[Rfam]
RNA sequence: UUAUGUGAUGAUAUUUUCUUUUUUUUCGUUGGUCUAAUGAGAACAGAAAUCCUCCAAAGGGAUUUUUAAGACCAUCCUACAAUUGUCUCGAUGAUUGUAUUUUUCACCAUUAUUGAAGCUAUUUAGUUAAUGUCGUUUUGAUAUUACUUUUUAGAGUUGAUAGUAACUCGAAAGAAUUGGGAGUCUUUUAAUGUAAUGAGUGGCCAACAACCUUUUUGUCAUAGUUACACUGAUA
Number, nucleotide and partner (000 for none) at each position: 001u000002u000003a000004u000005g222006u221007g220008a219009u218010g026011a025012u000013a023014u000015u000016u000017u000018c000019u000020u000021u000022u000023u013024u000025u011026u010027c000028g208029u207030u206031g205032g204033u203034c202035u000036a201037a000038u199039g000040a000041g000042a000043a194044c193045a192046g066047a065048a064049a063050u062051c061052c000053u000054c000055c000056a000057a000058a000059g000060g000061g051062a050063u049064u048065u047066u046067u000068a187069a186070g185071a184072c183073c000074a000075u000076c000077c000078u099079a098080c097081a096082a095083u094084u093085g092086u091087c000088u000089c000090g000091a086092u085093g084094a083095u082096u081097g080098u079099a078100u000101u000102u182103u181104u180105c179106a000107c000108c000109a164110u163111u162112a161113u160114u159115g158116a157117a000118g000119c154120u153121a150122u000123u000124u000125a148126g147127u146128u000129a144130a000131u143132g142133u141134c140135g000136u000137u000138u000139u000140g134141a133142u132143a131144u129145u000146a127147c126148u125149u000150u121151u000152u000153a120154g119155a000156g000157u116158u115159g114160a113161u112162a111163g110164u109165a000166a000167c000168u000169c000170g000171a000172a000173a000174g000175a000176a000177u000178u000179g105180g104181g103182a102183g072184u071185c070186u069187u068188u000189u000190a000191a000192u045193g044194u043195a000196a000197u000198g000199a038200g000201u036202g034203g033204c032205c031206a030207a029208c028209a000210a000211c000212c000213u000214u000215u000216u000217u000218g009219u008220c007221a006222u005223a000224g000225u000226u000227a000228c000229a000230c000231u000232g000233a000234u000235a000